[Rfam]
Nucleotides: 159
Base pairs, nucleotide, nucleotide: 003054004053005052006051008048009047010046015042016041017040018039019037020036021035022034023033024032025031026030066086067085068084070082071081072080094154095153096152097151098150099149100148101147102146104144105143110138111137112136114134115133116132117131121128
Number, partner (000 for none) and nucleotide at each position: 001000c002000a003054g004053g005052g006051c007000u008048g009047g010046g011000g012000a013000a014000g015042g016041g017040c018039u019037g020036c021035u022034g023033g024032u025031a026030c027000c028000u029000c030026g031025u032024g033023c034022c035021a036020g037019c038000c039018a040017g041016c042015c043000u044000c045000a046010c047009c048008c049000g050000u051006g052005c053004c054003c055000g056000a057000g058000a059000u060000c061000a062000a063000c064000g065000c066086c067085c068084c069000g070082g071081c072080g073000g074000g075000c076000u077000c078000c079000a080072u081071g082070c083000g084068g085067g086066g087000c088000c089000c090000a091000u092000c093000c094154u095153g096152u097151g098150c099149a100148g101147u102146a103000a104144c105143a106000g107000g108000u109000g110138u111137g112136a113000g114134c115133a116132u117131u118000c119000a120000u121128g122000c123000a124000g125000c126000g127000u128121u129000u130000u131117g132116a133115u134114g135000g136112u137111c138110a139000u140000g141000u142000a143105u144104g145000a146102u147101a148100c149099u150098g151097c152096a153095c154094a155000c156000a157000c158000c159000a

The record is a 159-nucleotide sequence from Tauraco erythrolophus, which matches "Small Cajal body specific RNA 16" in Rfam. It is annotated as a small Cajal body RNA. scaRNAs are a specific class of small nuclear RNAs which localise to the Cajal bodies and guide the modification of RNA polymerase II transcribed spliceosomal RNAs U1, U2, U4, U5 and U12. ACA47 belongs to the H/ACA box class of guide RNAs as it has the predicted hairpin-hinge-hairpin-tail structure, the conserved H/ACA-box motifs and is found associated with GAR1. Its family is annotated with nucleolus and RNA processing in the Gene Ontology.